[Rfam]
RNA sequence: UGUCAAUCUAACGGAAUCAUUUCUGCACAGACUAGACUCAUUGAAAAACCAGUGUGCGGAAAUGCUUCUGCUACUUUGGUA
Numbered sequence: 001u002g003u004c005a006a007u008c009u010a011a012c013g014g015a016a017u018c019a020u021u022u023c024u025g026c027a028c029a030g031a032c033u034a035g036a037c038u039c040a041u042u043g044a045a046a047a048a049c050c051a052g053u054g055u056g057c058g059g060a061a062a063u064g065c066u067u068c069u070g071c072u073a074c075u076u077u078g079g080u081a
Stems, first nucleotide, its partner, number of pairs: 001081002004078003009073002012070005018064012032052002
The family of this 81-nucleotide RNA sequence from Acipenser ruthenus is "mir-147 microRNA precursor family".
Rfam 15.1 lists 757 matches to the family in 593 species.
It scores 75 bits against the family's covariance model.
On this family, see Kawaji et al., BMC Genomics 2008: "Hidden layers of human small RNAs".